[Rfam]
RNA sequence: AUUUUGCAUCUUGAGAGAGAUUAAGUUCUCCUCCAACCUACCAACUCCGGCAAGGUGGAAAAAUGAUGUGGUUAACCAACAAAUAAAGGAGUUAAA
Numbered sequence: 001a002u003u004u005u006g007c008a009u010c011u012u013g014a015g016a017g018a019g020a021u022u023a024a025g026u027u028c029u030c031c032u033c034c035a036a037c038c039u040a041c042c043a044a045c046u047c048c049g050g051c052a053a054g055g056u057g058g059a060a061a062a063a064u065g066a067u068g069u070g071g072u073u074a075a076c077c078a079a080c081a082a083a084u085a086a087a088g089g090a091g092u093u094a095a096a
Stems, first nucleotide, its partner, number of pairs: 006069005015031001017030004032059003037055003041050002044092005071080003